[Rfam]
RNA sequence: CAAUCCUCUCAGGCCUUUGGCUAAGAUCAAGUGCUCUUAAUAGUUUAACAACUAUUAUUAUAUGGACCAUUGGUUCAUUUGUUUGUUAAUUUAUUUUUGAUCCUAGGUUCUCGAGCUCUGGCUUGCCAUCUCAGAACCACUGGUAUCCUCGGUAUUGCACUACCUUUGGAUGAUGCCGAGCCCUU
Numbered sequence: 001c002a003a004u005c006c007u008c009u010c011a012g013g014c015c016u017u018u019g020g021c022u023a024a025g026a027u028c029a030a031g032u033g034c035u036c037u038u039a040a041u042a043g044u045u046u047a048a049c050a051a052c053u054a055u056u057a058u059u060a061u062a063u064g065g066a067c068c069a070u071u072g073g074u075u076c077a078u079u080u081g082u083u084u085g086u087u088a089a090u091u092u093a094u095u096u097u098u099g100a101u102c103c104u105a106g107g108u109u110c111u112c113g114a115g116c117u118c119u120g121g122c123u124u125g126c127c128a129u130c131u132c133a134g135a136a137c138c139a140c141u142g143g144u145a146u147c148c149u150c151g152g153u154a155u156u157g158c159a160c161u162a163c164c165u166u167u168g169g170a171u172g173a174u175g176c177c178g179a180g181c182c183c184u185u
Stems, first nucleotide, its partner, number of pairs: 007026003012022004038057006062078007106138006113131001119128003141178006149169004

U2 spliceosomal RNA: a 185-nucleotide RNA.
The family's consensus secondary structure is taken from published work.